The family of this 84-nucleotide RNA sequence from Glycine max is "Small nucleolar RNA Z159/U59". Its Rfam clan is "SNORD59 clan". On this family, see Chen et al., Nucleic Acids Res 2003: "The high diversity of snoRNAs in plants: identification and comparative study of 120 snoRNA genes from Oryza sativa". It is annotated as a C/D-box small nucleolar RNA. The match comes from Rfam's covariance-model search (79 bits). The base pairs follow the family's consensus structure, which was predicted with PFOLD. Its family is annotated with RNA processing and nucleolus in the Gene Ontology.
RNA sequence: GCCUCUGAUGAUGAUGAAAAAUAUAACUUUCGUUCUUCCGAUAUUUCCAUGAGGAAAACGUUUGGAGACCUGAACUGAAGAGGC
Numbered sequence: 001g002c003c004u005c006u007g008a009u010g011a012u013g014a015u016g017a018a019a020a021a022u023a024u025a026a027c028u029u030u031c032g033u034u035c036u037u038c039c040g041a042u043a044u045u046u047c048c049a050u051g052a053g054g055a056a057a058a059c060g061u062u063u064g065g066a067g068a069c070c071u072g073a074a075c076u077g078a079a080g081a082g083g084c
Stems, first nucleotide, its partner, number of pairs: 003082004